[Rfam]
RNA: Small nucleolar RNA snR57
Organism: Lachancea thermotolerans
RNA sequence: UUCUUACAUGAUUAUGAAAACAAUCUAUUAAGUCUGAGGAUGUACAUGCAGGACUAAAUUGUUAAGGAAUUCUUCGUUUAUGAUCUGGAA
Dot-bracket structure: ((((..................................................................................))))